[Rfam]
RNA sequence: GAUCGCGGUGAUGACUCGGAAAAUUCAAGCUCAACAGACCGUAUUGCAGGUUUCUUUCUAUGAAUAGGAGUGAUUUGCAUGUCGAUAAUCCCGCUGAACUGAGCGAUC
Numbered sequence: 001g002a003u004c005g006c007g008g009u010g011a012u013g014a015c016u017c018g019g020a021a022a023a024u025u026c027a028a029g030c031u032c033a034a035c036a037g038a039c040c041g042u043a044u045u046g047c048a049g050g051u052u053u054c055u056u057u058c059u060a061u062g063a064a065u066a067g068g069a070g071u072g073a074u075u076u077g078c079a080u081g082u083c084g085a086u087a088a089u090c091c092c093g094c095u096g097a098a099c100u101g102a103g104c105g106a107u108c
Stems, first nucleotide, its partner, number of pairs: 001108006
The record is a 108-nucleotide sequence from Kingdonia uniflora, which matches "Small nucleolar RNA Z107/R87" in Rfam. By type it is a C/D-box small nucleolar RNA. For this family Rfam cites "The high diversity of snoRNAs in plants: identification and comparative study of 120 snoRNA genes from Oryza sativa" (Chen et al., Nucleic Acids Res, 2003). NCBI's taxonomy places the organism under Eukaryota, Streptophyta, Magnoliopsida, Circaeasteraceae, Kingdonia. The family has 9 seed sequences and 783 matches in Rfam 15.1.